RNA: mir-2774 microRNA precursor family
RNA sequence: AGAACAUUCGGACCGUCGGUCUACAAAGAAAUGUCACGUGCUCGGUGGAAGAUCUUCCCUUAAUCCU
Numbered sequence: 001a002g003a004a005c006a007u008u009c010g011g012a013c014c015g016u017c018g019g020u021c022u023a024c025a026a027a028g029a030a031a032u033g034u035c036a037c038g039u040g041c042u043c044g045g046u047g048g049a050a051g052a053u054c055u056u057c058c059c060u061u062a063a064u065c066c067u
Base pairs, nucleotide, nucleotide: 004064010058011057012056015053016052017051020049021048022047023046024045027042028041